The record is a 294-nucleotide RNA from Microcebus murinus, which matches "7SK RNA" in Rfam. Rfam 15.1 lists 49,373 matches to the family in 668 species. On this family, see Wassarman and Steitz, Mol Cell Biol 1991: "Structural analyses of the 7SK ribonucleoprotein (RNP), the most abundant human small RNP of unknown function". The base pairs follow the family's consensus structure, which is taken from published work. NCBI's taxonomy places the organism under Eukaryota, Sarcopterygii, Tetrapoda, Euarchontoglires, Microcebus. The match comes from Rfam's covariance-model search (251 bits). Rfam's curators write: 7SK was discovered as an abundant small nuclear RNA in the mid-70s but a possible function has only recently been suggested.

[Rfam]
RNA sequence: GGAUGUGAGGGCGAUCUGGCUGCGACAUCUGUCACCCCAUUGAUCGCCAGGUUUGAUUCGGCUGAUCUGGCUGGCUAGGCGGGUGUCCCCUUCCUCCCUCACCGCUCCAUUUGCGUCCCUCCUGAAGCUGCGUGCUCAGUCGAAGAAGAUGACCUUCCCUGCUAAAGGAGGACCGGUCUUCGGGUUCGGUCAAGGGUAUACGAGUAGCUGCGCUCCCCUGCUAGAACCUCCAAACAAGCUCUCAAGAUGUGCAUAUACAAAGAGGCAACGAUGUGGAAAGCCAGGAUAAAGGAC
Dot-bracket structure: (((.(((((((.((...((....((((((((((.(((((..(((((((...........))).)))))))..))...)))))))))).)).))..)))))))...))).......(((((.((((.((.....)))))).((.....((......))..))....))).))...................................(((...(..(..(((.......(....(.(.(.............).).)...)....)))..)..).....))).............